Notes
Shown here is a 49-nucleotide RNA from Geotalea uraniireducens, a member of the family "Moco-II RNA". Rfam classes the family as a cis-regulatory element.
RNA sequence: UCAGGCGCUUACUUCGUCCUCUGCCAAAGGCAGACUUAACGAAACCCGC
Numbered sequence: 001u002c003a004g005g006c007g008c009u010u011a012c013u014u015c016g017u018c019c020u021c022u023g024c025c026a027a028a029g030g031c032a033g034a035c036u037u038a039a040c041g042a043a044a045c046c047c048g049c
Stems, first nucleotide, its partner, number of pairs: 014042004020034005